[Rfam]
RNA sequence: CCGUGCUAGAUGGGGAGUUGGCGGUGCCCUGUAACCCGCAAUCCGCCUUAGCGGGGUUGAAUUCCUAGCUGCGGUACGUAUCAUGUAAGGUUUGCCUUAUGCAAGCGGUGUUGACCAUUUGGGUCUACGCAACAGAAACCUAUGAAUCUGGUCAGAUCCGGAAGGAAGCAGCCAUAAGUAGAUCAUUCUGUGUGCCGUAGGUUGCCCUAAUUGAGCUGGCUACUUAAGUAACACUUAUGUGAGCGUAUCAAUGUUAGGUGCACGG
Numbered sequence: 001c002c003g004u005g006c007u008a009g010a011u012g013g014g015g016a017g018u019u020g021g022c023g024g025u026g027c028c029c030u031g032u033a034a035c036c037c038g039c040a041a042u043c044c045g046c047c048u049u050a051g052c053g054g055g056g057u058u059g060a061a062u063u064c065c066u067a068g069c070u071g072c073g074g075u076a077c078g079u080a081u082c083a084u085g086u087a088a089g090g091u092u093u094g095c096c097u098u099a100u101g102c103a104a105g106c107g108g109u110g111u112u113g114a115c116c117a118u119u120u121g122g123g124u125c126u127a128c129g130c131a132a133c134a135g136a137a138a139c140c141u142a143u144g145a146a147u148c149u150g151g152u153c154a155g156a157u158c159c160g161g162a163a164g165g166a167a168g169c170a171g172c173c174a175u176a177a178g179u180a181g182a183u184c185a186u187u188c189u190g191u192g193u194g195c196c197g198u199a200g201g202u203u204g205c206c207c208u209a210a211u212u213g214a215g216c217u218g219g220c221u222a223c224u225u226a227a228g229u230a231a232c233a234c235u236u237a238u239g240u241g242a243g244c245g246u247a248u249c250a251a252u253g254u255u256a257g258g259u260g261c262a263c264g265g
Base pairs, nucleotide, nucleotide: 001265002264003263004262005261006260009058010057011056012030013029014028015027017025018024019023035055036054037053038052039051064258065257066256067255068254069253073249074248075247076246077245081242082241083240084239085238086237087236088235089234093230094229097227098226099225101223105220106219107217108216109215115213117211118210119209121207122206123205124201125200126199127198128197129196130192131191133190134189135188136187137186138183140181141180142179143178149174150173151172152171157166158165159164
A member of the RNA family "Bacterial large signal recognition particle RNA" from Halalkalibacter akibai, 265 nucleotides long. A search with the family's covariance model found it, with a score of 204 bits. The signal recognition particle (SRP) is a universally conserved ribonucleoprotein involved in the co-translational targeting of proteins to membranes. NCBI's taxonomy places the organism under Bacteria, Caryophanales, Bacillaceae, Halalkalibacter, Halalkalibacter akibai.